Shown here is a 101-nucleotide RNA from Paenibacillus oceani, a member of the family "Purine riboswitch aptamer". Riboswitches are metabolite binding domains within certain messenger RNAs that serve as precision sensors for their corresponding targets. Allosteric rearrangement of mRNA structure is mediated by ligand binding, and this results in modulation of gene expression. It scores 72 bits against the family's covariance model.
RNA sequence: GUUUGAAUAACAUACUGUUUUCGUAUAAUCUCAAGAAUUGGCUUGAGAGUUUCUACGAGGUCACCGUAAAUGAUCUGGCUACGAAACAGGGAAGCAAAGCA
Numbered sequence: 001g002u003u004u005g006a007a008u009a010a011c012a013u014a015c016u017g018u019u020u021u022c023g024u025a026u027a028a029u030c031u032c033a034a035g036a037a038u039u040g041g042c043u044u045g046a047g048a049g050u051u052u053c054u055a056c057g058a059g060g061u062c063a064c065c066g067u068a069a070a071u072g073a074u075c076u077g078g079c080u081a082c083g084a085a086a087c088a089g090g091g092a093a094g095c096a097a098a099g100c101a
Stems, first nucleotide, its partner, number of pairs: 019086007029048007058076006